[Rfam]
RNA sequence: UCCUAAAGUCUGGGUCGGACCUCUGCUGGUAUUCUCUGCGAUGAUAUUUUGAAAAAAGCUUAUCACCGGGUGAAAACUGGUAGAGGUCCGAUCCAGUCAG
Numbered sequence: 001u002c003c004u005a006a007a008g009u010c011u012g013g014g015u016c017g018g019a020c021c022u023c024u025g026c027u028g029g030u031a032u033u034c035u036c037u038g039c040g041a042u043g044a045u046a047u048u049u050u051g052a053a054a055a056a057a058g059c060u061u062a063u064c065a066c067c068g069g070g071u072g073a074a075a076a077c078u079g080g081u082a083g084a085g086g087u088c089c090g091a092u093c094c095a096g097u098c099a100g
Base pairs, nucleotide, nucleotide: 016090017089018088019087020086021085022084024082025081026080027079028078029077030076032074033073034072036070037069039068042065043064044063045062046061

This 100-nucleotide RNA sequence from Caenorhabditis briggsae belongs to the Rfam family "mir-36 microRNA precursor family". Rfam 15.1 lists 199 matches to the family in 31 species. Its family is annotated with RISC complex and miRNA-mediated post-transcriptional gene silencing in the Gene Ontology.